[Rfam]
RNA sequence: GCUCUCGGUCAGUUUUGCUGGUUUGCAUUCAGCUUGUUCCACCGGCCGCUGUGCAAAUCCAUGCAAAACUGACGGGAGGC
Numbered sequence: 001g002c003u004c005u006c007g008g009u010c011a012g013u014u015u016u017g018c019u020g021g022u023u024u025g026c027a028u029u030c031a032g033c034u035u036g037u038u039c040c041a042c043c044g045g046c047c048g049c050u051g052u053g054c055a056a057a058u059c060c061a062u063g064c065a066a067a068a069c070u071g072a073c074g075g076g077a078g079g080c
Base pairs, nucleotide, nucleotide: 002078003077004076005075006074008073009072010071011070012069013068014067015066016065017064018063020060021059022057023056024055025054026053027052028051031050032049033048

Shown here is an 80-nucleotide RNA sequence from Electrophorus electricus, a member of the family "mir-19 microRNA precursor family". The family has 106 seed sequences and 2,337 matches in Rfam 15.1. It scores 68 bits against the family's covariance model.